A member of the RNA family "c-di-GMP-I riboswitch aptamer" from Candidatus Electrothrix aarhusensis, 79 nucleotides long. The family's consensus secondary structure is taken from published work. A search with the family's covariance model found it, with a score of 55 bits. The organism belongs to Candidatus Electrothrix, within Bacteria.
RNA sequence: AAGUUGAAAAGCCACAGCCGUCGCGAGGCGGUGUCGGAAAGCCACGGAUCUCUAUGGAGGAGAUAGCCGGGUUACCUGC
Numbered sequence: 001a002a003g004u005u006g007a008a009a010a011g012c013c014a015c016a017g018c019c020g021u022c023g024c025g026a027g028g029c030g031g032u033g034u035c036g037g038a039a040a041g042c043c044a045c046g047g048a049u050c051u052c053u054a055u056g057g058a059g060g061a062g063a064u065a066g067c068c069g070g071g072u073u074a075c076c077u078g079c
Base pairs, nucleotide, nucleotide: 012037013036017032018031019030020029021028022027040073041072042071043070045069046068047067048064049063050062051061052060053059